[Rfam]
RNA sequence: UUGAACCGAACACCAUGGAUCUGUGUCCAGCGAUCCUGAUCGUGGGAGCGCCUUUUCUCCGAAGAGGUCGUAACUGCGUUUCGGUUGAUUACUGGACAGUUCGACGUUAUAAGGAGCCAUCAUAAUUGUGGAUGGUCGUAUGUUCCAGUCGACAGAUCUCAGAUUAAAAGUCGACACUGGGUGUUCGCUCUGGUCUUGAGCUCCCUCCUUGGUGAGCUCGGCUGGAGUUCCUGGUGCUCGGCGGCGUCAUAUUCCUGAUCCCUUCACCGAUUUGGCCGUCGGCCCGUGAGGUUAGGGAAAAACCAUGACCAGCCAACAUCC
Number, nucleotide and partner (000 for none) at each position: 001u000002u000003g000004a000005a000006c000007c000008g000009a000010a000011c000012a000013c000014c000015a000016u000017g159018g158019a157020u156021c155022u154023g153024u152025g097026u096027c095028c094029a093030g092031c000032g090033a089034u088035c087036c084037u083038g082039a081040u000041c078042g077043u000044g074045g000046g000047a071048g000049c000050g068051c067052c066053u000054u065055u064056u063057c000058u000059c000060c000061g000062a000063a056064g055065a054066g052067g051068u050069c000070g000071u047072a000073a000074c044075u000076g000077c042078g041079u000080u000081u039082c038083g037084g036085u000086u000087g035088a034089u033090u032091a000092c030093u029094g028095g027096a026097c025098a000099g000100u000101u000102c000103g000104a000105c151106g150107u000108u148109a000110u000111a000112a000113g139114g000115a000116g136117c135118c134119a000120u000121c000122a000123u000124a000125a000126u000127u000128g000129u000130g000131g000132a000133u000134g118135g117136u116137c000138g000139u113140a000141u000142g000143u000144u000145c000146c000147a000148g108149u000150c106151g105152a024153c023154a022155g021156a020157u019158c018159u017160c000161a000162g000163a000164u000165u000166a000167a000168a000169a000170g238171u000172c236173g000174a000175c000176a235177c234178u233179g232180g231181g230182u000183g000184u000185u000186c000187g000188c000189u000190c000191u000192g223193g222194u221195c220196u000197u000198g219199a218200g217201c216202u215203c214204c212205c211206u000207c000208c000209u000210u000211g205212g204213u000214g203215a202216g201217c200218u199219c198220g195221g194222c193223u192224g000225g000226a000227g000228u000229u000230c181231c180232u179233g178234g177235u176236g172237c000238u170239c000240g000241g000242c000243g314244g313245c312246g309247u308248c307249a306250u305251a000252u000253u000254c000255c000256u000257g000258a000259u298260c297261c296262c295263u294264u000265c000266a292267c291268c290269g000270a000271u000272u000273u000274g284275g283276c282277c281278g000279u000280c000281g277282g276283c275284c274285c000286g000287u000288g000289a000290g268291g267292u266293u000294a263295g262296g261297g260298a259299a000300a000301a000302a000303c000304c000305a250306u249307g248308a247309c246310c000311a000312g245313c244314c243315a000316a000317c000318a000319u000320c000321c000
This 321-nucleotide RNA from Aspergillus leporis belongs to the Rfam family "A. fumigatus sRNA Afu_309". The family's consensus secondary structure was predicted with WAR. Lineage of the source: Eukaryota > Pezizomycotina > Eurotiomycetes > Eurotiales > Aspergillus subgen. Circumdati.